[Rfam]
mir-124 microRNA precursor family: a 71-nucleotide RNA from Elysia chlorotica. The source organism's lineage runs through Eukaryota, Gastropoda, Heterobranchia, Panpulmonata and Elysia. On this family, see Lai et al., Genome Biol 2003: "Computational identification of Drosophila microRNA genes". The family's consensus secondary structure was predicted with PFOLD. The match comes from Rfam's covariance-model search (53 bits). Gene Ontology terms of the family: miRNA-mediated post-transcriptional gene silencing and RISC complex.
RNA sequence: ACCUGUUAGUGUUCACUGUGUCAGCCUUGGUGUAUCAGCACUAUUAAGGCACGCGGUGAAUGCCAAGGGGC
Numbered sequence: 001a002c003c004u005g006u007u008a009g010u011g012u013u014c015a016c017u018g019u020g021u022c023a024g025c026c027u028u029g030g031u032g033u034a035u036c037a038g039c040a041c042u043a044u045u046a047a048g049g050c051a052c053g054c055g056g057u058g059a060a061u062g063c064c065a066a067g068g069g070g071c
Base pairs, nucleotide, nucleotide: 003069004068006066009063010062011061012060013059014058015057016056018054019053020052025049026048027047028046029045030044031043032042